[Rfam]
RNA sequence: ACUGUGGAGUGUACAAAACAUGUGAGUAGUGUAUUGCUUGCAAUCGCCAAAGCAUACACGUUGAAACAGUAA
Numbered sequence: 001a002c003u004g005u006g007g008a009g010u011g012u013a014c015a016a017a018a019c020a021u022g023u024g025a026g027u028a029g030u031g032u033a034u035u036g037c038u039u040g041c042a043a044u045c046g047c048c049a050a051a052g053c054a055u056a057c058a059c060g061u062u063g064a065a066a067c068a069g070u071a072a
Stems, first nucleotide, its partner, number of pairs: 001070005009059005021054003029047003034043002
Shown here is a 72-nucleotide RNA sequence, a member of the family "RAGATH-18 RNA".